[Rfam]
RNA sequence: UGACAUCCUGAGCCAAAAUUGGACCUUGAGUCCAUACGGGGGACCCAUUAUUCCGGGGCGUACUUAGGAGAGCACUUUCCGCUCUAGCCCGUCAGCUGACCCCGUCGGCUUGGAAAGCGCCGUC
Numbered sequence: 001u002g003a004c005a006u007c008c009u010g011a012g013c014c015a016a017a018a019u020u021g022g023a024c025c026u027u028g029a030g031u032c033c034a035u036a037c038g039g040g041g042g043a044c045c046c047a048u049u050a051u052u053c054c055g056g057g058g059c060g061u062a063c064u065u066a067g068g069a070g071a072g073c074a075c076u077u078u079c080c081g082c083u084c085u086a087g088c089c090c091g092u093c094a095g096c097u098g099a100c101c102c103c104g105u106c107g108g109c110u111u112g113g114a115a116a117g118c119g120c121c122g123u124c
Stems, first nucleotide, its partner, number of pairs: 011110004018035002036105006046055001056090003070084004

About this RNA: c-di-AMP riboswitch aptamer (ydaO/yuaA leader): a 124-nucleotide RNA from Sulfobacillus harzensis. NCBI's taxonomy places the organism under Bacteria, Bacillati, Bacillota, Eubacteriales, Sulfobacillus. The pairing is the family consensus, mapped onto this sequence. The match comes from Rfam's covariance-model search (52 bits).